[Rfam]
Shown here is a 139-nucleotide sequence from Microbispora bryophytorum, a member of the family "c-di-AMP riboswitch aptamer (ydaO/yuaA leader)".
RNA sequence: ACAACCGGUACGCCUAAUCCCGGGCGCCCUGCCCGGGAGCCGGGGACCCAAUCACGCACCUGGGGUCAAGGCAGUAGCCUGCCCGGGCUUCUCCAGCCCGAACCCGUCAGCUAACCCGGUCGGCAGAUGGAGAGGAGUG
Numbered sequence: 001a002c003a004a005c006c007g008g009u010a011c012g013c014c015u016a017a018u019c020c021c022g023g024g025c026g027c028c029c030u031g032c033c034c035g036g037g038a039g040c041c042g043g044g045g046a047c048c049c050a051a052u053c054a055c056g057c058a059c060c061u062g063g064g065g066u067c068a069a070g071g072c073a074g075u076a077g078c079c080u081g082c083c084c085g086g087g088c089u090u091c092u093c094c095a096g097c098c099c100g101a102a103c104c105c106g107u108c109a110g111c112u113a114a115c116c117c118g119g120u121c122g123g124c125a126g127a128u129g130g131a132g133a134g135g136a137g138u139g
Stems, first nucleotide, its partner, number of pairs: 012124003018038009039120006049062002063105003071082004085099004
A search with the family's covariance model found it, with a score of 73 bits. The source organism's lineage runs through Bacteria, Actinomycetota, Actinomycetes, Streptosporangiaceae and Microbispora.